[Rfam]
RNA sequence: CGGGGAUUGCAGGCUCCCCGCAUAUCCAAGACGCCGGUGCGUCCAAGCUCUGC
Numbered sequence: 001c002g003g004g005g006a007u008u009g010c011a012g013g014c015u016c017c018c019c020g021c022a023u024a025u026c027c028a029a030g031a032c033g034c035c036g037g038u039g040c041g042u043c044c045a046a047g048c049u050c051u052g053c
Stems, first nucleotide, its partner, number of pairs: 001020006009053005030043005

chrB-b RNA: a 53-nucleotide sequence. It is one of the family's seed sequences. Rfam classes the family as a cis-regulatory element.